[Rfam]
RNA sequence: UAGGAGGAAGCCGAAAAUCCUGAAAAAGAGUAGGCG
Number, nucleotide and partner (000 for none) at each position: 001u000002a021003g020004g019005a018006g000007g000008a000009a000010g035011c034012c033013g000014a000015a000016a000017a000018u005019c004020c003021u002022g000023a000024a000025a000026a000027a000028g000029a000030g000031u000032a000033g012034g011035c010036g000
RNA: DUF805b RNA